[Rfam]
RNA sequence: GAGCAAUGAUGGAAAAAAUUUUACUGCUGAACUUUGUAACUAUGAAGGUUUCUACACUUGACCUAAGCUCG
Numbered sequence: 001g002a003g004c005a006a007u008g009a010u011g012g013a014a015a016a017a018a019u020u021u022u023a024c025u026g027c028u029g030a031a032c033u034u035u036g037u038a039a040c041u042a043u044g045a046a047g048g049u050u051u052c053u054a055c056a057c058u059u060g061a062c063c064u065a066a067g068c069u070c071g
Stems, first nucleotide, its partner, number of pairs: 001070004014035003019030002
Dot-bracket structure: ((((.........(((..((........))..)))...............................)))).
Shown here is a 71-nucleotide RNA from Spermophilus dauricus, a member of the family "Small nucleolar RNA U2-30".
On this family, see Tycowski et al., Curr Biol 2004: "Guide RNAs with 5' Caps and Novel Box C/D snoRNA-like Domains for Modification of snRNAs in Metazoa".
NCBI's taxonomy places the organism under Eukaryota, Bilateria, Teleostomi, Eutheria, Spermophilus.